[Rfam]
RNA: mir-33 microRNA precursor family
RNA sequence: CGGGAGUGCAUUGUAGUUGCAUUGCACUUUUUCACGUAUAUUGUGCAAUAUCACUACACGGCAAUUCUCG
Numbered sequence: 001c002g003g004g005a006g007u008g009c010a011u012u013g014u015a016g017u018u019g020c021a022u023u024g025c026a027c028u029u030u031u032u033c034a035c036g037u038a039u040a041u042u043g044u045g046c047a048a049u050a051u052c053a054c055u056a057c058a059c060g061g062c063a064a065u066u067c068u069c070g
Stems, first nucleotide, its partner, number of pairs: 001070004006066001007063003012058005019051001021049007